[Rfam]
RNA sequence: UCUAAUCCUUAGAUUCCGGCUCCCAGCCGCAUCACCCUGAAUCCACUUCCCCGGAAGCAGGUUGAUCUGGAGGGGAACCAGAAUCUAAGGCUCAGGCCUC
Numbered sequence: 001u002c003u004a005a006u007c008c009u010u011a012g013a014u015u016c017c018g019g020c021u022c023c024c025a026g027c028c029g030c031a032u033c034a035c036c037c038u039g040a041a042u043c044c045a046c047u048u049c050c051c052c053g054g055a056a057g058c059a060g061g062u063u064g065a066u067c068u069g070g071a072g073g074g075g076a077a078c079c080a081g082a083a084u085c086u087a088a089g090g091c092u093c094a095g096g097c098c099u100c
Base pairs, nucleotide, nucleotide: 010087011086012085013084014083015082016081018079019078021076022075023074024073027070028069029068031066032065033064034063036061037060038059039058042055043054